[Rfam]
RNA sequence: GUGUGAAAUGAUGGCAUACCAUCUUUCGGGACUGACAUAUCAUGGAGAUGCUUUUUUUAAACUUUACUGAUCACAU
Numbered sequence: 001g002u003g004u005g006a007a008a009u010g011a012u013g014g015c016a017u018a019c020c021a022u023c024u025u026u027c028g029g030g031a032c033u034g035a036c037a038u039a040u041c042a043u044g045g046a047g048a049u050g051c052u053u054u055u056u057u058u059a060a061a062c063u064u065u066a067c068u069g070a071u072c073a074c075a076u
Base pairs, nucleotide, nucleotide: 001076002075003074004073005072006071

Rfam assigns this 76-nucleotide RNA from Clarias magur to the family "Small nucleolar RNA SNORD2". Rfam links the family to the GO terms RNA processing and nucleolus. A search with the family's covariance model found it, with a score of 69 bits. For this family Rfam cites "Identification of a novel box C/D snoRNA from mouse nucleolar cDNA library" (Zhou et al., Gene, 2004). NCBI's taxonomy places the organism under Eukaryota, Opisthokonta, Chordata, Actinopterygii, Clarias. Rfam 15.1 lists 1,116 matches to the family in 660 species. Pairs were carried over by alignment from the consensus structure, which was predicted with WAR.